Rfam assigns this 239-nucleotide sequence from Clostridioides difficile to the family "T-box leader". Rfam 15.1 lists 19,395 matches to the family in 1,923 species. Gene Ontology term of the family: tRNA binding. It is annotated as a cis-regulatory leader. It is one of the family's seed sequences. Uncharged tRNA acts as the effector for transcription antitermination of genes in the T-box leader family. T-boxes are found upstream of many aminoacyl-tRNA synthetase genes and some amino acid biosynthetic genes usually in Gram-positive bacteria. The anticodon of a specific tRNA base pairs to a specifier sequence within the T-box motif, and the NCCA acceptor tail of the tRNA base pairs to a conserved bulge in the T-box antiterminator hairpin. Taxonomically the source falls in Clostridioides (Bacteria, Clostridia, Peptostreptococcales, Peptostreptococcaceae).
RNA sequence: AUCAUAGUGUUGAAGAGGAAGAGUAGAGUAGAAACCAUUCUCAGAGAAUUUGGGUCUAUGGCUGAGAGCCCAUGUAAUAGGUCUAUUUGAAAACUACCUUGGAGCUGAGCUUAUUAGCAGUAUUUGUAUUUAUACUAUACGUGAAAGUGCUCGGGUGACGACCUUAUAGUCAUCAAGAGGGUUGUAUAUACUUGUAUACGCCAACUUGGGUGGAACCGCGAAUUAAUAUCGUCCCAAAC
Numbered sequence: 001a002u003c004a005u006a007g008u009g010u011u012g013a014a015g016a017g018g019a020a021g022a023g024u025a026g027a028g029u030a031g032a033a034a035c036c037a038u039u040c041u042c043a044g045a046g047a048a049u050u051u052g053g054g055u056c057u058a059u060g061g062c063u064g065a066g067a068g069c070c071c072a073u074g075u076a077a078u079a080g081g082u083c084u085a086u087u088u089g090a091a092a093a094c095u096a097c098c099u100u101g102g103a104g105c106u107g108a109g110c111u112u113a114u115u116a117g118c119a120g121u122a123u124u125u126g127u128a129u130u131u132a133u134a135c136u137a138u139a140c141g142u143g144a145a146a147g148u149g150c151u152c153g154g155g156u157g158a159c160g161a162c163c164u165u166a167u168a169g170u171c172a173u174c175a176a177g178a179g180g181g182u183u184g185u186a187u188a189u190a191c192u193u194g195u196a197u198a199c200g201c202c203a204a205c206u207u208g209g210g211u212g213g214a215a216c217c218g219c220g221a222a223u224u225a226a227u228a229u230c231g232u233c234c235c236a237a238a239c
Base pairs, nucleotide, nucleotide: 007105008104015100016099017098018097026088027087028086029085030084031083037078038077039076048075049074051072052071053070054069055068107152108151109150110149112147154163155162183200184199185198186197187196188195207236208235209234210233218232219231220230221229